[Rfam]
RNA sequence: CGGACUGUAGCGCAGCUUGGUAGCGCACCGUCAUGGGGUGUCGGGGGUCGUAGGUUCAAAUCCUAUCAGUCCGA
Numbered sequence: 001c002g003g004a005c006u007g008u009a010g011c012g013c014a015g016c017u018u019g020g021u022a023g024c025g026c027a028c029c030g031u032c033a034u035g036g037g038g039u040g041u042c043g044g045g046g047g048u049c050g051u052a053g054g055u056u057c058a059a060a061u062c063c064u065a066u067c068a069g070u071c072c073g074a
Stems, first nucleotide, its partner, number of pairs: 001073007010026004028044003032040001050066005
Rfam assigns this 74-nucleotide RNA from Vibrio caribbeanicus to the family "tRNA".
The family is grouped with related families in Rfam's "tRNA clan".
The family's consensus secondary structure is taken from published work.
The match comes from Rfam's covariance-model search (56 bits).